[Rfam]
RNA sequence: UGUCUCCUCUGAUUCUCUUGAAUUGGAUUCAGCCCGCUGCCGCAAGGUGUGCGGGCUUUUUUUU
Numbered sequence: 001u002g003u004c005u006c007c008u009c010u011g012a013u014u015c016u017c018u019u020g021a022a023u024u025g026g027a028u029u030c031a032g033c034c035c036g037c038u039g040c041c042g043c044a045a046g047g048u049g050u051g052c053g054g055g056c057u058u059u060u061u062u063u064u
Stems, first nucleotide, its partner, number of pairs: 008027008031057007
The family of this 64-nucleotide RNA sequence from Noviherbaspirillum humi is "Betaproteobacteria toxic small RNA". From the family's description: Overexpression in amino aid rich medium attenuates growth, suggesting role in repressing amino acid intake and metabolism. A search with the family's covariance model found it, with a score of 51 bits. Lineage of the source: Bacteria > Pseudomonadati > Pseudomonadota > Betaproteobacteria > Noviherbaspirillum.